Rfam assigns this 80-nucleotide RNA from Actinosynnema mirum to the family "ZMP/ZTP riboswitch aptamer (pfl RNA motif)". Gene Ontology terms of the family: one-carbon metabolic process and regulation of purine nucleotide biosynthetic process. Lineage of the source: Bacteria > Actinomycetota > Pseudonocardiales > Actinosynnema > Actinosynnema mirum.

RNA sequence: AUGGCGCAGCACGACUGGCGAGGGUGGGUCACCACCGGGGAGUGCGAGCAGAGCAGGCAUCGCCCGCCUGGGUGCCCCUC
Numbered sequence: 001a002u003g004g005c006g007c008a009g010c011a012c013g014a015c016u017g018g019c020g021a022g023g024g025u026g027g028g029u030c031a032c033c034a035c036c037g038g039g040g041a042g043u044g045c046g047a048g049c050a051g052a053g054c055a056g057g058c059a060u061c062g063c064c065c066g067c068c069u070g071g072g073u074g075c076c077c078c079u080c
Stems, first nucleotide, its partner, number of pairs: 004049002009045004015039002017068004024035004057075005